[Rfam]
RNA: FMN riboswitch aptamer (RFN element)
RNA sequence: CAGCAUUCUCAGGGCGGGGUGGAAGUCCCCACCGGCGGUAAGCAGUGUGCUGCAAGCCCGCGAGCGCCUUCAUUCGGAAGGGUCAAGCAGAUCAGGUGAGAAUCCUGAGCCGACGGUCAAAGUCCGGAUGAAAGAGAAACUGC
Numbered sequence: 001c002a003g004c005a006u007u008c009u010c011a012g013g014g015c016g017g018g019g020u021g022g023a024a025g026u027c028c029c030c031a032c033c034g035g036c037g038g039u040a041a042g043c044a045g046u047g048u049g050c051u052g053c054a055a056g057c058c059c060g061c062g063a064g065c066g067c068c069u070u071c072a073u074u075c076g077g078a079a080g081g082g083u084c085a086a087g088c089a090g091a092u093c094a095g096g097u098g099a100g101a102a103u104c105c106u107g108a109g110c111c112g113a114c115g116g117u118c119a120a121a122g123u124c125c126g127g128a129u130g131a132a133a134g135a136g137a138a139a140c141u142g143c
Base pairs, nucleotide, nucleotide: 003141006138007137008136009135010134017029018028019027031123032122033112034111035061036060037059038058056110057109064088065087092108093107094106095105096104114126115125116124